[Rfam]
RNA sequence: GGCUGGUCCGAGUACAGUGGUGUUGACAACUAAAUCGAUCACAACCAGUUACAGAUUCCUUUGUUCCUUCUCCACUCCUACUGCCUCACCUGACUAGCCUUAA
Numbered sequence: 001g002g003c004u005g006g007u008c009c010g011a012g013u014a015c016a017g018u019g020g021u022g023u024u025g026a027c028a029a030c031u032a033a034a035u036c037g038a039u040c041a042c043a044a045c046c047a048g049u050u051a052c053a054g055a056u057u058c059c060u061u062u063g064u065u066c067c068u069u070c071u072c073c074a075c076u077c078c079u080a081c082u083g084c085c086u087c088a089c090c091u092g093a094c095u096a097g098c099c100u101u102a103a
Stems, first nucleotide, its partner, number of pairs: 001099008010091001016082005022077001028065003032061002
RNA: Y RNA